[Rfam]
RNA sequence: AACAAUGUCUUAAUUGAUAGACGCCCAGAGUCACGAUUCGUCUUAGUUUUAGAAAAUUCUAUUUCGAUAGUUUUUUUUAGACGGUGGACGUAUAUAGUUUACUAUACGGUGGGGUACUAAUACUAUUUCACUGUCGUGCUCGCGGUUGAUCUUAGAUAAAAAAAUUUCUUUUUUAUAAAAGGAAGUGAGUAGAUCUUCCCUGGAAGUACGAUCAAUGUACUUAUGAUUAGAUUUUCUUCACGCACAUAC
Number, nucleotide and partner (000 for none) at each position: 001a000002a000003c000004a000005a000006u000007g000008u000009c000010u000011u000012a000013a000014u000015u000016g000017a000018u000019a152020g151021a150022c148023g147024c000025c145026c144027a000028g000029a000030g000031u000032c000033a137034c136035g135036a134037u000038u000039c090040g089041u088042c087043u086044u000045a000046g000047u000048u081049u080050u079051a078052g077053a076054a075055a074056a000057u000058u000059c070060u069061a068062u067063u000064u000065c000066g000067a062068u061069a060070g059071u000072u000073u000074u055075u054076u053077u052078u051079a050080g049081a048082c000083g000084g000085u000086g043087g042088a041089c040090g039091u000092a000093u106094a105095u104096a103097g102098u000099u000100u000101a000102c097103u096104a095105u094106a093107c133108g132109g131110u130111g129112g128113g127114g126115u125116a124117c000118u000119a000120a000121u000122a000123c000124u116125a115126u114127u113128u112129c111130a110131c109132u108133g107134u036135c035136g034137u033138g000139c000140u000141c000142g000143c000144g026145g025146u000147u023148g022149a000150u021151c020152u019153u000154a000155g000156a000157u000158a000159a000160a000161a000162a000163a000164a000165u184166u183167u182168c181169u180170u179171u178172u000173u000174u000175a000176u000177a000178a171179a170180a169181g168182g167183a166184a165185g241186u240187g239188a238189g236190u000191a234192g233193a232194u231195c230196u229197u000198c000199c000200c000201u000202g000203g000204a222205a221206g220207u219208a218209c217210g216211a000212u000213c000214a000215a000216u210217g209218u208219a207220c206221u205222u204223a000224u000225g000226a000227u000228u000229a196230g195231a194232u193233u192234u191235u000236c189237u000238u188239c187240a186241c185242g000243c000244a000245c000246a000247u000248a000249c000
A member of the RNA family "Small nucleolar RNA snR11" from Saccharomyces uvarum, 249 nucleotides long. Lineage of the source: Eukaryota > Opisthokonta > Fungi > Saccharomycetaceae > Saccharomyces uvarum. It is one of the family's seed sequences. The base pairs follow the family's consensus structure, which was predicted with WAR. For this family Rfam cites "A yeast small nuclear RNA is required for normal processing of pre-ribosomal RNA" (Tollervey, EMBO J, 1987). The family's RNA type in Rfam is H/ACA-box small nucleolar RNA. Clan: SNORA3 clan.